The family of this 121-nucleotide sequence from Ructibacterium gallinarum is "FMN riboswitch aptamer (RFN element)". Lineage of the source: Bacteria > Clostridia > Eubacteriales > Oscillospiraceae > Ructibacterium. The RFN element is a highly conserved domain that is found frequently in the 5'-untranslated regions of prokaryotic mRNAs that encode for flavin mononucleotide (FMN) biosynthesis and transport proteins. This element is a metabolite-dependent riboswitch that directly binds FMN in the absence of proteins. In Bacillus subtilis, the riboswitch most likely controls gene expression by causing premature transcription termination within the 5' untranslated region of the ribDEAHT operon and precluding access to the ribosome-binding site of ypaA mRNA.The FMN riboswitch structure, reported in present an FMN-bound six-stem junction, adopts a butterfly-like scaffold, stapled together by opposingly directed but nearly identically folded peripheral domains. Pairs were carried over by alignment from the consensus structure, which is taken from published work.

RNA sequence: AUAUCACUUCAGGGAUCGGUGAAAUUCCGUACCGGCGGUACAGCCCGCGAGCGAGAAAUGUUCCCGCAGAUUCGGUGAAAUUCCGAAGCCGACAGUAUAGUCUGGAUGAAAGAAGUUUUUG
Numbered sequence: 001a002u003a004u005c006a007c008u009u010c011a012g013g014g015a016u017c018g019g020u021g022a023a024a025u026u027c028c029g030u031a032c033c034g035g036c037g038g039u040a041c042a043g044c045c046c047g048c049g050a051g052c053g054a055g056a057a058a059u060g061u062u063c064c065c066g067c068a069g070a071u072u073c074g075g076u077g078a079a080a081u082u083c084c085g086a087a088g089c090c091g092a093c094a095g096u097a098u099a100g101u102c103u104g105g106a107u108g109a110a111a112g113a114a115g116u117u118u119u120u121g
Base pairs, nucleotide, nucleotide: 003119006116007115008114009113010112017029018028019027031101032100033091034090035048036047037046038045043089044088051067052066053065071087072086073085074084075083093104094103095102